[Rfam]
RNA sequence: GGCUGACCGAUUUCUCCUGGUGUUCAGAGUCUCAGUUUUUGUCUAGCACCAUUUGAAAGCGGUUAUGA
Numbered sequence: 001g002g003c004u005g006a007c008c009g010a011u012u013u014c015u016c017c018u019g020g021u022g023u024u025c026a027g028a029g030u031c032u033c034a035g036u037u038u039u040u041g042u043c044u045a046g047c048a049c050c051a052u053u054u055g056a057a058a059g060c061g062g063u064u065a066u067g068a
Stems, first nucleotide, its partner, number of pairs: 004065001005063001007062003011058004018051005026044003